[Rfam]
RNA sequence: UUUUGAAAAGGGCAAAUCUAUCGAAAGGUAGAGGCGCAAAGCUACGGGUCUAAGGUGAUACCAUCACUAUGACAGCCGGGUUGCCAAA
Numbered sequence: 001u002u003u004u005g006a007a008a009a010g011g012g013c014a015a016a017u018c019u020a021u022c023g024a025a026a027g028g029u030a031g032a033g034g035c036g037c038a039a040a041g042c043u044a045c046g047g048g049u050c051u052a053a054g055g056u057g058a059u060a061c062c063a064u065c066a067c068u069a070u071g072a073c074a075g076c077c078g079g080g081u082u083g084c085c086a087a088a
Stems, first nucleotide, its partner, number of pairs: 012037002017032006040082004045078003048073003055067004
Rfam assigns this 88-nucleotide sequence from Acetivibrio saccincola to the family "c-di-GMP-I riboswitch aptamer". The source organism's lineage runs through Bacteria, Bacillati, Acetivibrionales, Acetivibrionaceae and Acetivibrio. Pairs were carried over by alignment from the consensus structure, which is taken from published work. GEMM was predicted in a large-scale screen for bacterial structured RNA regulatory elements. Genes associated with GEMM are involved in a diverse array of functions, including chemotaxis regulation, signal transduction, secretion and chitin.